The record is a 121-nucleotide RNA sequence from Glutamicibacter uratoxydans, which matches "SAM (S-adenosyl methionine) riboswitch aptamer" in Rfam. SAM-IV is a mRNA element that regulates gene expression via direct sensing of S-adenosylmethionine (SAM or AdoMet). The family's consensus secondary structure is taken from published work.
RNA sequence: CUUCACGAGAUCUGGCGGCAAGCCCCGACUAGCCAGGCACCAACCCCACACAGUUGUACGGCGGGUGGUUCGGGUGACGAAGCGGCCAGCCGCGCAGCCGUGCGGCGGGCAAGGACAACGA
Numbered sequence: 001c002u003u004c005a006c007g008a009g010a011u012c013u014g015g016c017g018g019c020a021a022g023c024c025c026c027g028a029c030u031a032g033c034c035a036g037g038c039a040c041c042a043a044c045c046c047c048a049c050a051c052a053g054u055u056g057u058a059c060g061g062c063g064g065g066u067g068g069u070u071c072g073g074g075u076g077a078c079g080a081a082g083c084g085g086c087c088a089g090c091c092g093c094g095c096a097g098c099c100g101u102g103c104g105g106c107g108g109g110c111a112a113g114g115a116c117a118a119c120g121a
Stems, first nucleotide, its partner, number of pairs: 001082004009038001011037006021030002039069003044065003085110003089106006